[Rfam]
RNA sequence: ACUGUCGCAAAGGGGUGCUUCGUUAUGAAGCUGAGAAUAUACCCUUAGAACAAAAUAGGUAAUGCUAUUUUGGAUCUGCGAUAAAUCAAAGG
Numbered sequence: 001a002c003u004g005u006c007g008c009a010a011a012g013g014g015g016u017g018c019u020u021c022g023u024u025a026u027g028a029a030g031c032u033g034a035g036a037a038u039a040u041a042c043c044c045u046u047a048g049a050a051c052a053a054a055a056u057a058g059g060u061a062a063u064g065c066u067a068u069u070u071u072g073g074a075u076c077u078g079c080g081a082u083a084a085a086u087c088a089a090a091g092g
Stems, first nucleotide, its partner, number of pairs: 006080004011045004016039001017031005051072008

A member of the RNA family "TPP riboswitch aptamer (THI element)" from Christiangramia fulva, 92 nucleotides long.
Taxonomically the source falls in Christiangramia (Bacteria, Pseudomonadati, Flavobacteriales, Flavobacteriaceae).
Its family is annotated with thiamine pyrophosphate binding in the Gene Ontology.